[Rfam]
RNA sequence: AGCACUUGUGUUUUUGUAAUUUGUGGACAAAAACUACAUACAGGUGCUAAAAAUAAAGCCUCUUUUGCAACUCAGAACUCAUUGCUCAGUAUGAGUUGUUUUGUUUUUUUAAAUUUUUUUA
Numbered sequence: 001a002g003c004a005c006u007u008g009u010g011u012u013u014u015u016g017u018a019a020u021u022u023g024u025g026g027a028c029a030a031a032a033a034c035u036a037c038a039u040a041c042a043g044g045u046g047c048u049a050a051a052a053a054u055a056a057a058g059c060c061u062c063u064u065u066u067g068c069a070a071c072u073c074a075g076a077a078c079u080c081a082u083u084g085c086u087c088a089g090u091a092u093g094a095g096u097u098g099u100u101u102u103g104u105u106u107u108u109u110u111a112a113a114u115u116u117u118u119u120u121a
Base pairs, nucleotide, nucleotide: 001048002047003046004045005044006043007042008041009040010034011033012032013031014030015029016028017027020025057120058119064113065112066111067110073103074102075101076097077096078095079094080093081092082091